About this RNA
This 57-nucleotide RNA sequence from Pluchea indica belongs to the Rfam family "Plastid-psbA-3 3UTR RNA". From the family's description: Plastid psbA-3 is a non-coding RNA (ncRNA) present in plastids. It was identified in inverted repeat sequences in the 3 prime untranslate region (3UTR) of photosystem II quinone-binding protein (psbA). The base pairs follow the family's consensus structure, which was predicted with LocARNA. The organism belongs to Pluchea, within Eukaryota.

[Rfam]
RNA sequence: AAAAGGAGCAAGAAUGCCCUCUUUAUAAAACAAGAGGGCAUUCUUGCUCCUUUUUUU
Numbered sequence: 001a002a003a004a005g006g007a008g009c010a011a012g013a014a015u016g017c018c019c020u021c022u023u024u025a026u027a028a029a030a031c032a033a034g035a036g037g038g039c040a041u042u043c044u045u046g047c048u049c050c051u052u053u054u055u056u057u
Stems, first nucleotide, its partner, number of pairs: 002053013019036005

It is one of the family's seed sequences. On this family, see Richter et al., Plant Commun 2023: "Retrograde signaling in plants: A critical review focusing on the GUN pathway and beyond".